RNA sequence: UUGGGCGAAAUGCUCGCUAAAGGGGCUACUAUCGAGGAACUUGAUUUCCUGCUCACGCCCCUGGGAAGGUCUGAGACAAAGGCCGUUGCCUAUCCUAGAUGGAUACCCUUGUAACUAUAGGGGUGGAUCACUAGAAACAGGCUCGGCGAGUUGCAAUUGGCAGAUGAAUCCUUUCUGUUACAGGAGGGAAAAUGCCAGCAACUGCGUCAAAGUUGGAAAGGUUCCACGGCCAGCUUAGUUAGUUCAAUCGGCGAGGUAACACCCCAGUGGCUGUUAUAACUCAAUUCAGACUACUCUUCGUCCAA
Number, nucleotide and partner (000 for none) at each position: 001u305002u304003g303004g302005g000006c000007g299008a298009a297010a000011u000012g000013c255014u254015c253016g252017c251018u250019a000020a000021a062022g061023g060024g059025g058026c000027u000028a000029c000030u000031a000032u000033c000034g000035a050036g049037g048038a047039a046040c000041u000042u000043g000044a000045u000046u039047u038048c037049c036050u035051g000052c000053u000054c000055a000056c000057g000058c025059c024060c023061c022062u021063g000064g000065g000066a000067a000068g000069g000070u000071c289072u288073g287074a286075g285076a000077c000078a000079a000080a000081g231082g230083c229084c228085g000086u000087u000088g000089c000090c000091u105092a104093u103094c102095c101096u000097a000098g000099a000100u000101g095102g094103a093104u092105a091106c122107c121108c120109u119110u000111g000112u000113a000114a000115c000116u000117a000118u000119a109120g108121g107122g106123g227124u226125g225126g224127a223128u000129c221130a000131c000132u000133a000134g000135a000136a000137a000138c000139a000140g000141g000142c212143u211144c000145g000146g000147c000148g000149a000150g000151u000152u000153g000154c000155a000156a000157u000158u000159g000160g000161c000162a000163g000164a000165u000166g000167a000168a000169u000170c000171c000172u000173u000174u000175c000176u000177g000178u000179u000180a000181c000182a000183g000184g000185a000186g000187g000188g000189a000190a000191a000192a000193u000194g000195c000196c000197a000198g000199c000200a000201a000202c000203u000204g000205c000206g000207u000208c000209a000210a000211a143212g142213u000214u000215g000216g000217a000218a000219a000220g000221g129222u000223u127224c126225c125226a124227c123228g084229g083230c082231c081232a000233g000234c000235u000236u000237a000238g000239u000240u000241a000242g000243u000244u000245c000246a000247a000248u000249c000250g018251g017252c016253g015254a014255g013256g277257u276258a275259a274260c273261a272262c000263c000264c000265c000266a000267g000268u000269g000270g000271c000272u261273g260274u259275u258276a257277u256278a000279a000280c000281u000282c000283a000284a000285u075286u074287c073288a072289g071290a000291c000292u000293a000294c000295u000296c000297u009298u008299c007300g000301u000302c004303c003304a002305a001
Nuclear RNase P: a 305-nucleotide RNA from Stylophora pistillata. It is annotated as a ribozyme. The organism belongs to Stylophora, within Eukaryota. It scores 152 bits against the family's covariance model. The family's consensus secondary structure is taken from published work. Its Rfam clan is "RNaseP clan".